[Rfam]
Nucleotides: 208
Base pairs, nucleotide, nucleotide: 006097007096009094013089014088015087019085020084021083022082023081024080025079029077030076031075032074033073034072035071036070037069038068039067043066044065050063051062052061098146099145100144101143102142103140111138112137113136114135115134116133117132118131119130163201164200165199166198167197168196170194171193173191174190175189177187178186179185180184
Number, partner (000 for none) and nucleotide at each position: 001000a002000u003000g004000u005000a006097u007096u008000c009094u010000g011000u012000a013089c014088g015087u016000u017000u018000a019085a020084g021083a022082u023081a024080a025079g026000c027000u028000g029077g030076c031075a032074a033073u034072a035071a036070a037069a038068a039067a040000g041000u042000a043066g044065u045000a046000a047000a048000a049000a050063c051062a052061u053000c054000c055000a056000u057000g058000a059000a060000a061052g062051u063050g064000g065044g066043c067039u068038u069037u070036u071035u072034u073033g074032u075031u076030g077029u078000a079025c080024u081023u082022a083021u084020u085019u086000u087015a088014c089013g090000a091000a092000u093000a094009g095000a096007g097006g098146c099145a100144u101143a102142g103140a104000u105000a106000c107000a108000g109000g110000u111138a112137a113136a114135g115134u116133g117132u118131a119130g120000c121000c122000a123000u124000u125000u126000g127000a128000g129000a130119c131118u132117a133116u134115a135114u136113u137112u138111u139000u140103u141000c142102c143101u144100a145099u146098g147000u148000c149000u150000u151000u152000u153000u154000a155000a156000c157000g158000u159000u160000g161000g162000u163201a164200u165199g166198c167197a168196g169000a170194c171193u172000a173191a174190a175189g176000c177187u178186c179185g180184c181000a182000u183000u184180g185179c186178g187177g188000a189175u190174u191173u192000u193171a194170g195000c196168c197167u198166g199165c200164a201163u202000u203000u204000u205000u206000u207000a208000u